[Rfam]
RNA sequence: GCUAAGAGGGAACGCAUCUCUUCGGUAGCGUACUCCUCGAUCAGAAGGCAGAGGCAAAAAGACGAGUCGAGAUAUCGUUUCAGUCGCCACUCCACCCGUUGGCGGUUCGAUUGUUGCUCGACCACAC
Numbered sequence: 001g002c003u004a005a006g007a008g009g010g011a012a013c014g015c016a017u018c019u020c021u022u023c024g025g026u027a028g029c030g031u032a033c034u035c036c037u038c039g040a041u042c043a044g045a046a047g048g049c050a051g052a053g054g055c056a057a058a059a060a061g062a063c064g065a066g067u068c069g070a071g072a073u074a075u076c077g078u079u080u081c082a083g084u085c086g087c088c089a090c091u092c093c094a095c096c097c098g099u100u101g102g103c104g105g106u107u108c109g110a111u112u113g114u115u116g117c118u119c120g121a122c123c124a125c126a127c
Stems, first nucleotide, its partner, number of pairs: 006038005012031004066122001068120004074111004083106007092098001

This 127-nucleotide RNA from Musa balbisiana belongs to the Rfam family "Small nucleolar RNA snoR111". The match comes from Rfam's covariance-model search (62 bits). Rfam classes the family as an H/ACA-box small nucleolar RNA.